The family of this 46-nucleotide sequence from Syntrophotalea acetylenivorans is "Moco-II RNA". Taxonomically the source falls in Syntrophotalea (Bacteria, Pseudomonadati, Thermodesulfobacteriota, Desulfuromonadales). It scores 57 bits against the family's covariance model.
[Rfam]
RNA sequence: UGGCGCCCAUUUCGUCCUCUGCAUCGGCAGACCCAACGAAACCCGC
Dot-bracket structure: ...........((((..(((((....)))))....)))).......